[Rfam]
Shown here is an 80-nucleotide sequence from Suricata suricatta, a member of the family "Small nucleolar RNA SNORD115". The family's consensus secondary structure was predicted with PFOLD. The match comes from Rfam's covariance-model search (84 bits). Rfam classes the family as a C/D-box small nucleolar RNA. A reference for the family is Cavaille et al. (2000), "Identification of brain-specific and imprinted small nucleolar RNA genes exhibiting an unusual genomic organization", Proc Natl Acad Sci U S A.
Nucleotides: 080
Stems, first nucleotide, its partner, number of pairs: 001080001003078002005074002008071002
Number, partner (000 for none) and nucleotide at each position: 001080g002000u003078g004077u005074c006073a007000a008071u009070g010000a011000u012000g013000g014000a015000a016000c017000u018000c019000a020000u021000u022000u023000g024000g025000u026000c027000u028000c029000a030000a031000a032000g033000a034000g035000a036000g037000a038000u039000g040000a041000u042000g043000a044000c045000c046000u047000a048000a049000a050000a051000a052000u053000c054000a055000u056000g057000c058000u059000c060000a061000a062000u063000a064000g065000g066000a067000u068000u069000a070009c071008g072000c073006u074005g075000a076000g077004g078003c079000u080001c